[Rfam]
RNA sequence: ACACCGCCUCCGAGCGGUGUUCGUGGCCUCGAACGGGCCCAUGAGGCGGGGGUGGUGCCGUGUCGGCGCAGCACCACCCCUUCCGG
Dot-bracket structure: (((((((......)))))))(((((((((.....))).)))))).(.(((((((((((.(((....))).))))))))))).)...